RNA sequence: UGCUAUUUGUGUUCACAGUGGACCUUGAUUUAAUGUUUUCAAUUAAGGCACGCGGUGAAUGCCAAGAGCG
Numbered sequence: 001u002g003c004u005a006u007u008u009g010u011g012u013u014c015a016c017a018g019u020g021g022a023c024c025u026u027g028a029u030u031u032a033a034u035g036u037u038u039u040c041a042a043u044u045a046a047g048g049c050a051c052g053c054g055g056u057g058a059a060u061g062c063c064a065a066g067a068g069c070g
Base pairs, nucleotide, nucleotide: 003068004067006065009062010061011060012059013058014057015056016055018053019052020051023048024047025046026045027044028043029042030041
RNA: mir-124 microRNA precursor family